Rfam assigns this 109-nucleotide RNA from Rhodoferax saidenbachensis to the family "TPP riboswitch aptamer (THI element)".

RNA sequence: UGCAUUCGCUAGGGGUGUUGCCCUGUAUUGAAAAGUGCAGGCCGACUGAGAGAGUCCCUUUGAACCUGAUUGAGGUAAUCCUCGCGCAGGGAAGCAAGUCCGGCCUUGG
Numbered sequence: 001u002g003c004a005u006u007c008g009c010u011a012g013g014g015g016u017g018u019u020g021c022c023c024u025g026u027a028u029u030g031a032a033a034a035g036u037g038c039a040g041g042c043c044g045a046c047u048g049a050g051a052g053a054g055u056c057c058c059u060u061u062g063a064a065c066c067u068g069a070u071u072g073a074g075g076u077a078a079u080c081c082u083c084g085c086g087c088a089g090g091g092a093a094g095c096a097a098g099u100c101c102g103g104c105c106u107u108g109g
Base pairs, nucleotide, nucleotide: 006097008095009094010093011059012058013057014056016053017046018045019044020043065090066089067088068087071084072083073082074081
The base pairs follow the family's consensus structure, which is taken from published work. A search with the family's covariance model found it, with a score of 56 bits. The source organism's lineage runs through Bacteria, Pseudomonadota, Betaproteobacteria, Burkholderiales and Rhodoferax. Gene Ontology term of the family: thiamine pyrophosphate binding.